Overview: The family of this 188-nucleotide sequence from Dipodomys ordii is "Small nucleolar RNA SNORA57". Rfam links the family to the GO terms nucleolus and RNA processing. On this family, see Vitali et al., Nucleic Acids Res 2003: "Identification of 13 novel human modification guide RNAs". The base pairs follow the family's consensus structure, which was predicted with PFOLD. From the family's description: U99 belongs to the H/ACA class of snoRNAs which are thought to guide the sites of modification of uridines to pseudouridines, the target for this family is unknown.

RNA sequence: CCUCCAUUUCUUGGUGGAGACCAGGCACGCAGUCCUGUUCUCCAUUACCUACGGAGGCAGAAGGAAAUGCAGUCCUGUUCUCCAUUACCUACGGAGGCAGAAGGAAAGGGCUCAAGCCCUCUUGGCGUCAUGUCUUCAGUGCCAGUGACUUCUACUUGCCAGCUCUGUCCUCAAGCUCUGGGACCAUG
Numbered sequence: 001c002c003u004c005c006a007u008u009u010c011u012u013g014g015u016g017g018a019g020a021c022c023a024g025g026c027a028c029g030c031a032g033u034c035c036u037g038u039u040c041u042c043c044a045u046u047a048c049c050u051a052c053g054g055a056g057g058c059a060g061a062a063g064g065a066a067a068u069g070c071a072g073u074c075c076u077g078u079u080c081u082c083c084a085u086u087a088c089c090u091a092c093g094g095a096g097g098c099a100g101a102a103g104g105a106a107a108g109g110g111c112u113c114a115a116g117c118c119c120u121c122u123u124g125g126c127g128u129c130a131u132g133u134c135u136u137c138a139g140u141g142c143c144a145g146u147g148a149c150u151u152c153u154a155c156u157u158g159c160c161a162g163c164u165c166u167g168u169c170c171u172c173a174a175g176c177u178c179u180g181g182g183a184c185c186a187u188g
Stems, first nucleotide, its partner, number of pairs: 001097005015084006022077004123180003127176002142162001145159004